[Rfam]
RNA sequence: GAUUUAUGAUGAGAAAGGACCUUGUCUGAACAUAAUGAUUGCAAAUUGUGAGCUUGAAAAUGUCACUGAAAUC
Dot-bracket structure: ((((.................................................................))))

This 73-nucleotide sequence from Phyllostomus discolor belongs to the Rfam family "Small nucleolar RNA SNORD107".
Taxonomically the source falls in Phyllostomus (Eukaryota, Opisthokonta, Sarcopterygii, Tetrapoda).
Its family is annotated with nucleolus and RNA processing in the Gene Ontology.
A search with the family's covariance model found it, with a score of 78 bits.
The family's RNA type in Rfam is C/D-box small nucleolar RNA.